[Rfam]
RNA sequence: AACACCUUUAAAAACAGUCCAGAGAGGCUGAGAAGGUAACAGUGAACGUAUAUAAACACAUGCUGUGUGUUACUAUACGCCUAAUUUUCUGCAUUCACACCCUCUCAUCCAUUUUCGGACGAGAGGGUUUUUAUU
Numbered sequence: 001a002a003c004a005c006c007u008u009u010a011a012a013a014a015c016a017g018u019c020c021a022g023a024g025a026g027g028c029u030g031a032g033a034a035g036g037u038a039a040c041a042g043u044g045a046a047c048g049u050a051u052a053u054a055a056a057c058a059c060a061u062g063c064u065g066u067g068u069g070u071u072a073c074u075a076u077a078c079g080c081c082u083a084a085u086u087u088u089c090u091g092c093a094u095u096c097a098c099a100c101c102c103u104c105u106c107a108u109c110c111a112u113u114u115u116c117g118g119a120c121g122a123g124a125g126g127g128u129u130u131u132u133a134u135u
Stems, first nucleotide, its partner, number of pairs: 004037006015030005047079006055071006097130001099128008108119003
RNA: PyrR binding site
Organism: Paenisporosarcina sp. HGH0030